[Rfam]
RNA sequence: UUACGAUAAAGGCAAACCCGGAGUGAUCCGGUAACGCAAAUUAACAGAGUCUUUUGUAGAGACGUAUUGCAAUACGCCUCUGCUGUCGAAAAAAAGAAAGCCUUACUGCCGAA
Numbered sequence: 001u002u003a004c005g006a007u008a009a010a011g012g013c014a015a016a017c018c019c020g021g022a023g024u025g026a027u028c029c030g031g032u033a034a035c036g037c038a039a040a041u042u043a044a045c046a047g048a049g050u051c052u053u054u055u056g057u058a059g060a061g062a063c064g065u066a067u068u069g070c071a072a073u074a075c076g077c078c079u080c081u082g083c084u085g086u087c088g089a090a091a092a093a094a095a096g097a098a099a100g101c102c103u104u105a106c107u108g109c110c111g112a113a
Base pairs, nucleotide, nucleotide: 012037013036018031019030020029021028022027040107042105043104046103047102050097051096052092053091054090

This 113-nucleotide RNA sequence from Candidatus Brocadia fulgida belongs to the Rfam family "c-di-GMP-I riboswitch aptamer". Lineage of the source: Bacteria > Pseudomonadati > Candidatus Brocadiia > Candidatus Brocadiales > Candidatus Brocadia.